[Rfam]
The record is a 65-nucleotide RNA from Mytilus edulis, which matches "Selenocysteine insertion sequence 1" in Rfam. The source organism's lineage runs through Eukaryota, Eumetazoa, Lophotrochozoa, Mytilidae and Mytilus. The match comes from Rfam's covariance-model search (39 bits). The incorporation of selenocysteine into a protein sequence is directed by an in-frame UGA codon (usually a stop codon) within the coding region of the mRNA. Selenoprotein mRNAs contain a conserved secondary structure in the 3' UTR that is required for the distinction of UGA stop from UGA selenocysteine. Pairs were carried over by alignment from the consensus structure, which is taken from published work. Rfam classes the family as a cis-regulatory element.
RNA sequence: CAUAUAUGUUAUGAUGGUAUGAUUCUAAACCCUUAACGGGAAGGAUUGUGCCUGAUGUUCAUAUG
Numbered sequence: 001c002a003u004a005u006a007u008g009u010u011a012u013g014a015u016g017g018u019a020u021g022a023u024u025c026u027a028a029a030c031c032c033u034u035a036a037c038g039g040g041a042a043g044g045a046u047u048g049u050g051c052c053u054g055a056u057g058u059u060c061a062u063a064u065g
Stems, first nucleotide, its partner, number of pairs: 001065005016052010031040003